The family of this 261-nucleotide RNA sequence from Agathobacter ruminis is "Bacterial large signal recognition particle RNA". A search with the family's covariance model found it, with a score of 163 bits.
[Rfam]
RNA sequence: CCGAGCAGCCGGGGUGGUAGCGGUGCCUUGAACCAACAAUCCGCUAUAGUUGGGGUGAUGUUUGGCAGAGGGUUAUGCUGGUAAAGCAGCCCCGUACAGACGGCGUUGACGCCUGGGUCUUACGCAAUGAGAAUUCCCGAACCGGGUCAGGGUGGGAACACAGCAGCCCUAAGGGAAACCUUUCAUGUGUCGUAGGGGUGCCUGGGGGGAGUUGGCUGUACAGGUAGCGUUUAUUGGUCAAAUUCGAAGUCAAACGCUCGG
Numbered sequence: 001c002c003g004a005g006c007a008g009c010c011g012g013g014g015u016g017g018u019a020g021c022g023g024u025g026c027c028u029u030g031a032a033c034c035a036a037c038a039a040u041c042c043g044c045u046a047u048a049g050u051u052g053g054g055g056u057g058a059u060g061u062u063u064g065g066c067a068g069a070g071g072g073u074u075a076u077g078c079u080g081g082u083a084a085a086g087c088a089g090c091c092c093c094g095u096a097c098a099g100a101c102g103g104c105g106u107u108g109a110c111g112c113c114u115g116g117g118u119c120u121u122a123c124g125c126a127a128u129g130a131g132a133a134u135u136c137c138c139g140a141a142c143c144g145g146g147u148c149a150g151g152g153u154g155g156g157a158a159c160a161c162a163g164c165a166g167c168c169c170u171a172a173g174g175g176a177a178a179c180c181u182u183u184c185a186u187g188u189g190u191c192g193u194a195g196g197g198g199u200g201c202c203u204g205g206g207g208g209g210a211g212u213u214g215g216c217u218g219u220a221c222a223g224g225u226a227g228c229g230u231u232u233a234u235u236g237g238u239c240a241a242a243u244u245c246g247a248a249g250u251c252a253a254a255c256g257c258u259c260g261g
Stems, first nucleotide, its partner, number of pairs: 001261006008056003011029006018022001033053005061254006070245005077238009089228002092223001094221004101215001102213003110208001112206007119196006125187002128185005134177005144169004152161003
The organism belongs to Agathobacter, within Bacteria.